This 122-nucleotide RNA from Abiotrophia defectiva belongs to the Rfam family "Ribosomal protein L10 leader". The family's RNA type in Rfam is cis-regulatory leader.
RNA sequence: CAUACGUUAAUAUAACGACCGAAGACAGUAAGUGGCGCAGGCCUUAAUUUCUUACCGAGGAAGUUCCACGAAUGGAAGCUAUCUCUAUGUCUAAGGUGACAUAGAGAUUUUUUAUGGCAACA
Numbered sequence: 001c002a003u004a005c006g007u008u009a010a011u012a013u014a015a016c017g018a019c020c021g022a023a024g025a026c027a028g029u030a031a032g033u034g035g036c037g038c039a040g041g042c043c044u045u046a047a048u049u050u051c052u053u054a055c056c057g058a059g060g061a062a063g064u065u066c067c068a069c070g071a072a073u074g075g076a077a078g079c080u081a082u083c084u085c086u087a088u089g090u091c092u093a094a095g096g097u098g099a100c101a102u103a104g105a106g107a108u109u110u111u112u113u114a115u116g117g118c119a120a121c122a
Stems, first nucleotide, its partner, number of pairs: 028055005034043003082107010
Source information
NCBI's taxonomy places the organism under Bacteria, Bacillota, Lactobacillales, Aerococcaceae, Abiotrophia defectiva. The base pairs follow the family's consensus structure, which was predicted with CMfinder. For this family Rfam cites "Diverse mechanisms for regulating ribosomal protein synthesis in Escherichia coli" (Zengel and Lindahl, Prog Nucleic Acid Res Mol Biol, 1994).